[Rfam]
RNA sequence: UGCGACACCCAUCAAAGGAGUCGUUCCCUACCCGGGAGCUACUUUACCAUAUUCCGUAAAU
Number, nucleotide and partner (000 for none) at each position: 001u000002g000003c000004g000005a000006c000007a000008c000009c000010c000011a000012u000013c000014a000015a000016a000017g045018g044019a043020g042021u041022c000023g039024u038025u037026c036027c035028c000029u000030a000031c000032c000033c000034g000035g027036g026037a025038g024039c023040u000041a021042c020043u019044u018045u017046a000047c000048c000049a000050u000051a000052u000053u000054c000055c000056g000057u000058a000059a000060a000061u000
A member of the RNA family "Plastid-psbN 5UTR RNA" from Olea europaea, 61 nucleotides long. It is annotated as a cis-regulatory element. Rfam describes the family as follows. Plastid psbN is a non-coding RNA (ncRNA) recognised in plastids. It was reported as a conserved 11 stem-loop in the prime untranslated region (5UTR) of psbN genes. Pairs were carried over by alignment from the consensus structure, which was predicted with LocARNA. It scores 69 bits against the family's covariance model.